Record summary
The family of this 132-nucleotide RNA sequence from Phyllostomus discolor is "Small nucleolar RNA SNORA42/SNORA80 family". Its family is annotated with nucleolus and RNA processing in the Gene Ontology. The family's consensus secondary structure was predicted with RNAalifold. Rfam 15.1 lists 1,535 matches to the family in 183 species. From the family's description: The members of this family belong to the H/ACA class of snoRNAs that guide the sites of modification of uridines to pseudouridines. Human ACA42 (SNORA42) was cloned from HeLa cells by immunoprecipitation with anti-GAR1 antibody. The literature on the family includes a 2006 paper in RNA by Schattner et al., "A computational screen for mammalian pseudouridylation guide H/ACA RNAs".
RNA sequence: GCAUGGACUUGGAUUUAUGGCAGGCUCCUCCCCCUGGGUCUCUCACAGUGCCCCAUGCCAGAGCACCCUGGCCCGGAACCACUGCCUGGUCUCUGCCUGUGGGCUGCAGGCACUGAAGCGGGCCACACAGUG
Numbered sequence: 001g002c003a004u005g006g007a008c009u010u011g012g013a014u015u016u017a018u019g020g021c022a023g024g025c026u027c028c029u030c031c032c033c034c035u036g037g038g039u040c041u042c043u044c045a046c047a048g049u050g051c052c053c054c055a056u057g058c059c060a061g062a063g064c065a066c067c068c069u070g071g072c073c074c075g076g077a078a079c080c081a082c083u084g085c086c087u088g089g090u091c092u093c094u095g096c097c098u099g100u101g102g103g104c105u106g107c108a109g110g111c112a113c114u115g116a117a118g119c120g121g122g123c124c125a126c127a128c129a130g131u132g
Base pairs, nucleotide, nucleotide: 001058002057003056004055005053006052008050015048016047018045019044020043022041023040024039025037026036069125070124071123072122073121074120080115081114085110086109087106088105089104090103091102092101